[Rfam]
RNA sequence: UUCUCAUCGAGAGAAGGCGGAGGGACUGGCCCGAUGAAGCCCGGCAACCUGCCUGUAUUCGUACAGGCAAGGUGCUACUUCCUGCAGGAGAGAUCCUGAGAGAUGAGAG
Numbered sequence: 001u002u003c004u005c006a007u008c009g010a011g012a013g014a015a016g017g018c019g020g021a022g023g024g025a026c027u028g029g030c031c032c033g034a035u036g037a038a039g040c041c042c043g044g045c046a047a048c049c050u051g052c053c054u055g056u057a058u059u060c061g062u063a064c065a066g067g068c069a070a071g072g073u074g075c076u077a078c079u080u081c082c083u084g085c086a087g088g089a090g091a092g093a094u095c096c097u098g099a100g101a102g103a104u105g106a107g108a109g
Stems, first nucleotide, its partner, number of pairs: 001109008013042001016041003022032003026084001028082002043076004048072002050069006080101001085098005
RNA: SAM riboswitch aptamer (S box leader)
Organism: Aneurinibacillus danicus